This 125-nucleotide RNA sequence from Streptococcus hillyeri belongs to the Rfam family "Ribosomal protein L20 leader".
For this family Rfam cites "Diverse mechanisms for regulating ribosomal protein synthesis in Escherichia coli" (Zengel and Lindahl, Prog Nucleic Acid Res Mol Biol, 1994).
The organism belongs to Streptococcus, within Bacteria.
RNA sequence: UGAGAAAAGCAGAAGUGAGAACUUCUCGCCUUGCGACUUAGGUUGUCUGGCCCAACAUGUCAAAUUCUACAAAGUAGAACUAUGCGUGCGGGCUUGGAAUAUCAAGUCCGCUUUGUUUUUCUCUA
Numbered sequence: 001u002g003a004g005a006a007a008a009g010c011a012g013a014a015g016u017g018a019g020a021a022c023u024u025c026u027c028g029c030c031u032u033g034c035g036a037c038u039u040a041g042g043u044u045g046u047c048u049g050g051c052c053c054a055a056c057a058u059g060u061c062a063a064a065u066u067c068u069a070c071a072a073a074g075u076a077g078a079a080c081u082a083u084g085c086g087u088g089c090g091g092g093c094u095u096g097g098a099a100u101a102u103c104a105a106g107u108c109c110g111c112u113u114u115g116u117u118u119u120u121c122u123c124u125a
Stems, first nucleotide, its partner, number of pairs: 011026006028051003033046005088111009
It scores 79 bits against the family's covariance model.